[Rfam]
Rfam assigns this 166-nucleotide RNA sequence from Centropus unirufus to the family "Small Cajal body specific RNA 1". Its family is annotated with Cajal body, nucleolus and RNA processing in the Gene Ontology. Taxonomically the source falls in Centropus (Eukaryota, Coelurosauria, Neognathae, Cuculiformes). The match comes from Rfam's covariance-model search (127 bits). Rfam describes the family as follows. scaRNAs are a specific class of small nuclear RNAs which localise to the Cajal bodies and guide the modification of RNA polymerase II transcribed spliceosomal RNAs U1, U2, U4, U5 and U12. ACA35 belong to the H/ACA box class of guide RNAs as it has the predicted hairpin-hinge-hairpin-tail structure, conserved H/ACA-box motifs and is found associated with GAR1. It is predicted to guide pseudouridylation of the U2 spliceosomal snRNA at residue U89. The family has 29 seed sequences and 715 matches in Rfam 15.1.
RNA sequence: GAGCACUUGAUACUAACCGAGCCGUCUGUGCCUCGGGCCUCGCACAGAGGUCUGGGGUGCACCUUGUGAUUGCUGGGUCUGAGAAGUGCGACAGUAACACAAGCCAUGAGAUGUAUAAGCUCAGUGUGUGAAGGAAAACACUGGGUUAUAACUCAGAGGCACAGAA
Numbered sequence: 001g002a003g004c005a006c007u008u009g010a011u012a013c014u015a016a017c018c019g020a021g022c023c024g025u026c027u028g029u030g031c032c033u034c035g036g037g038c039c040u041c042g043c044a045c046a047g048a049g050g051u052c053u054g055g056g057g058u059g060c061a062c063c064u065u066g067u068g069a070u071u072g073c074u075g076g077g078u079c080u081g082a083g084a085a086g087u088g089c090g091a092c093a094g095u096a097a098c099a100c101a102a103g104c105c106a107u108g109a110g111a112u113g114u115a116u117a118a119g120c121u122c123a124g125u126g127u128g129u130g131a132a133g134g135a136a137a138a139c140a141c142u143g144g145g146u147u148a149u150a151a152c153u154c155a156g157a158g159g160c161a162c163a164g165a166a
Stems, first nucleotide, its partner, number of pairs: 003089006016078003020074003024070003027061006034054001036052006103160003124139002127136001129134001141156006